The record is an 84-nucleotide sequence, which matches "c-di-GMP-II-GAG riboswitch aptamer" in Rfam. Clan: c-di-GMP_II riboswitch clan. Rfam's curators put it in the seed alignment.
[Rfam]
RNA sequence: CGACAGGCGGAAGGCUGUGACGCGUGGCCCAUGCCCCGGCCGCCGGGACCGCGCCGAGCCACUGGCGAGACCGACCGCCCGCAU
Numbered sequence: 001c002g003a004c005a006g007g008c009g010g011a012a013g014g015c016u017g018u019g020a021c022g023c024g025u026g027g028c029c030c031a032u033g034c035c036c037c038g039g040c041c042g043c044c045g046g047g048a049c050c051g052c053g054c055c056g057a058g059c060c061a062c063u064g065g066c067g068a069g070a071c072c073g074a075c076c077g078c079c080c081g082c083a084u
Base pairs, nucleotide, nucleotide: 004081006079007078008077009076010075013060014059015058022054023053024052025051026050027049029047038072039071041067042066043065044064